[Rfam]
RNA sequence: GGAUGUUCUGAAGACCUGCUCACUAGGCCACGCACGGAGGACGCUUGUUCCUCACGGGCUCCGCGCCCGCCUAGGGGAAAGUCCCCGGACCGCUGGCAGAGAGUGCCGGGCGCUGCCGGCGCCCUCGCCCGCCCCCAGUCUCACGCAAGCGCCGCCGAGACGCCCCCGGGCUGAGCGGGUGAGCGCGGGGCGGGCUCUCGUCACGGCCACAGAGACGCAGGUAGUGCGCAGGCGCACUAACAGAACGGGGCUCACUCUCAGGCCAUC
Numbered sequence: 001g002g003a004u005g006u007u008c009u010g011a012a013g014a015c016c017u018g019c020u021c022a023c024u025a026g027g028c029c030a031c032g033c034a035c036g037g038a039g040g041a042c043g044c045u046u047g048u049u050c051c052u053c054a055c056g057g058g059c060u061c062c063g064c065g066c067c068c069g070c071c072u073a074g075g076g077g078a079a080a081g082u083c084c085c086c087g088g089a090c091c092g093c094u095g096g097c098a099g100a101g102a103g104u105g106c107c108g109g110g111c112g113c114u115g116c117c118g119g120c121g122c123c124c125u126c127g128c129c130c131g132c133c134c135c136c137a138g139u140c141u142c143a144c145g146c147a148a149g150c151g152c153c154g155c156c157g158a159g160a161c162g163c164c165c166c167c168g169g170g171c172u173g174a175g176c177g178g179g180u181g182a183g184c185g186c187g188g189g190g191c192g193g194g195c196u197c198u199c200g201u202c203a204c205g206g207c208c209a210c211a212g213a214g215a216c217g218c219a220g221g222u223a224g225u226g227c228g229c230a231g232g233c234g235c236a237c238u239a240a241c242a243g244a245a246c247g248g249g250g251c252u253c254a255c256u257c258u259c260a261g262g263c264c265a266u267c
Base pairs, nucleotide, nucleotide: 002267003266004265005264007262008261009260010259011258014222015221016220017219018218019217023074024073025072026071027070028069037053038052039051040050041049080252081251083250084249085248086247095107096106097105098104108124109123110122111121112120113119126194128192132190133189134188135187141183152178153177154176155175162171163170164169224237225236226235227234228233
Rfam assigns this 267-nucleotide RNA sequence from Steatornis caripensis to the family "RNase MRP". Rfam 15.1 lists 3,510 matches to the family in 2,315 species. Clan: RNaseP clan. A search with the family's covariance model found it, with a score of 144 bits.